[Rfam]
RNA: Actinobacteria sRNA Ms_IGR-5
RNA sequence: ACACAAGAAGGGAGGUGGUCUGAAGCAUGAGUUGCACUCGGACACGUGAGGUGACUGCGGGCUAGCACCGCGCACUCGGCGUGCGAGAUGCUCGCCAAUCCCACGCAGUUCACCCGACCCGCGGGCUCGUCGGACUUGUCCGGCCGGUGCUCGGAGCCUCAGGCUCCGAGGAGCAGCCCGCGGGUCGUUCGUU
Number, nucleotide and partner (000 for none) at each position: 001a000002c000003a000004c000005a000006a000007g000008a000009a000010g000011g000012g000013a000014g000015g058016u057017g056018g055019u054020c000021u000022g000023a000024a000025g000026c000027a000028u000029g000030a000031g000032u000033u000034g000035c000036a000037c000038u000039c000040g000041g000042a000043c000044a000045c000046g000047u000048g000049a000050g000051g000052u000053g000054a019055c018056u017057g016058c015059g000060g096061g095062c094063u000064a092065g091066c090067a000068c000069c087070g000071c085072g000073c083074a082075c081076u000077c000078g000079g000080c000081g075082u074083g073084c000085g071086a000087g069088a000089u000090g066091c065092u064093c000094g062095c061096c060097a000098a000099u000100c000101c000102c000103a000104c000105g000106c000107a000108g000109u000110u000111c000112a000113c000114c000115c187116g186117a185118c184119c183120c182121g181122c180123g179124g178125g177126c176127u175128c000129g148130u147131c146132g145133g144134a000135c000136u000137u000138g000139u000140c000141c000142g000143g000144c133145c132146g131147g130148u129149g000150c000151u000152c000153g000154g000155a000156g000157c000158c000159u000160c000161a000162g000163g000164c000165u000166c000167c000168g000169a000170g000171g000172a000173g000174c000175a127176g126177c125178c124179c123180g122181c121182g120183g119184g118185u117186c116187g115188u000189u000190c000191g000192u000193u000